[Rfam]
Nucleotides: 076
Stems, first nucleotide, its partner, number of pairs: 003074003008069011023056010
Number, partner (000 for none) and nucleotide at each position: 001000u002000a003074g004073g005072c006000a007000u008069c009068u010067g011066u012065a013064a014063a015062c016061a017060u018059c019000c020000u021000u022000g023056a024055c025054u026053g027052g028051a029050a030049g031048c032047u033000a034000g035000u036000g037000c038000a039000g040000a041000c042000a043000a044000a045000g046000a047032g048031g049030c050029u051028u052027u053026c054025a055024g056023u057000c058000a059018g060017a061016u062015g063014u064013u065012u066011g067010c068009a069008g070000c071000c072005g073004c074003c075000a076000a
A member of the RNA family "mir-30 microRNA precursor family" from Chanos chanos, 76 nucleotides long.
Pairs were carried over by alignment from the consensus structure, which was predicted with PFOLD.
A search with the family's covariance model found it, with a score of 64 bits.
A reference for the family is Lagos-Quintana et al. (2001), "Identification of novel genes coding for small expressed RNAs", Science.
This family consists of the mammalian microRNA (miRNA) precursor mir-30a. Animal miRNAs are transcribed as ~70nt precursors and subsequently processed by the Dicer enzyme to give a ~22nt product. In this case the mature sequence comes from both the 3' (miR-30) and 5' (mir-97-6) arms of the precursor.